[Rfam]
RNA sequence: CUCUUAUCAAGAGUGGCGGAGGGACUGGCCCUAUGAAGCCCGGCAACCUGCGUCUUUUUAGCUAAAAAGGCGCAAAGGUGCCAAUUCCUGCAAAACGCUAAAGGCGUUUUGAGAGAUAAGAG
Numbered sequence: 001c002u003c004u005u006a007u008c009a010a011g012a013g014u015g016g017c018g019g020a021g022g023g024a025c026u027g028g029c030c031c032u033a034u035g036a037a038g039c040c041c042g043g044c045a046a047c048c049u050g051c052g053u054c055u056u057u058u059u060a061g062c063u064a065a066a067a068a069g070g071c072g073c074a075a076a077g078g079u080g081c082c083a084a085u086u087c088c089u090g091c092a093a094a095a096c097g098c099u100a101a102a103g104g105c106g107u108u109u110u111g112a113g114a115g116a117u118a119a120g121a122g
Stems, first nucleotide, its partner, number of pairs: 001122008013041001015040003021031003025090001027088002042082004047078002049074009086114001091111008
This 122-nucleotide sequence from Fervidicola ferrireducens belongs to the Rfam family "SAM riboswitch aptamer (S box leader)". Rfam's curators write: The SAM riboswitch is found upstream of a number of genes which code for proteins involved in methionine or cysteine biosynthesis in Gram-positive bacteria. The SAM riboswitch acts at the level of transcription termination control. The predicted structure consists of a complex stem-loop region followed by a single stem loop terminator region. An alternative and mutually exclusive form involves bases in the 3' segment of helix 1 with those in the 5' region of helix 5 to form a structure termed the anti-terminator form. This entry represents the conserved core of the complex structure involving helices 1-4.